Rfam assigns this 65-nucleotide sequence from Equus caballus to the family "mir-214 microRNA precursor family".

RNA sequence: UCUGCCUGUCUACACUUGCUGUGCAGAACAUCCGCUCACCUGUACAGCAGGCACAGACAGGCAGU
Numbered sequence: 001u002c003u004g005c006c007u008g009u010c011u012a013c014a015c016u017u018g019c020u021g022u023g024c025a026g027a028a029c030a031u032c033c034g035c036u037c038a039c040c041u042g043u044a045c046a047g048c049a050g051g052c053a054c055a056g057a058c059a060g061g062c063a064g065u
Base pairs, nucleotide, nucleotide: 003063004062005061006060007059008058009057010056011055015051017049018048019047020046021045022044024042025041026040

The base pairs follow the family's consensus structure, which was predicted with RNAalifold. The sequence is in the family's curated seed alignment.